permuted transfer-messenger RNA: a 215-nucleotide sequence from Sphingomonas chungangi. It scores 120 bits against the family's covariance model. From the family's description: Bacterial tmRNA, also known as 10Sa RNA or SsrA, is named for its dual tRNA and mRNA-like properties. Its role is to liberate the mRNA from a stalled ribosome. To accomplish this part of the tmRNA is used as a reading frame that ends in a translation stop signal. By type it is a non-coding RNA gene.

RNA sequence: GGUGAUAAAUGAUAUCGAGUGAGGCGCAGCGGACCCGGGGGCGGUACCCGGCGGCUCCACCACAACCCGGCCUUCCAACAGCCGGGCUUCUGAUGGGGCCGAACUAGGAUCGACGUGUGUACGAGCUUGCUAUUUUUGCCCGGCCUGAUUGAGCCGUAAAACCGAUCAAAACCACAAGUGCCAACGACAACGAGGCGCUCGCCCUGGCCGCGUAA
Numbered sequence: 001g002g003u004g005a006u007a008a009a010u011g012a013u014a015u016c017g018a019g020u021g022a023g024g025c026g027c028a029g030c031g032g033a034c035c036c037g038g039g040g041g042c043g044g045u046a047c048c049c050g051g052c053g054g055c056u057c058c059a060c061c062a063c064a065a066c067c068c069g070g071c072c073u074u075c076c077a078a079c080a081g082c083c084g085g086g087c088u089u090c091u092g093a094u095g096g097g098g099c100c101g102a103a104c105u106a107g108g109a110u111c112g113a114c115g116u117g118u119g120u121a122c123g124a125g126c127u128u129g130c131u132a133u134u135u136u137u138g139c140c141c142g143g144c145c146u147g148a149u150u151g152a153g154c155c156g157u158a159a160a161a162c163c164g165a166u167c168a169a170a171a172c173c174a175c176a177a178g179u180g181c182c183a184a185c186g187a188c189a190a191c192g193a194g195g196c197g198c199u200c201g202c203c204c205u206g207g208c209c210g211c212g213u214a215a
Base pairs, nucleotide, nucleotide: 001140002139003138004137005136015129017127025119026118027117029116030115031114035051036050037049038048039047052101053100054099055098056097057096058095141156142155143154144153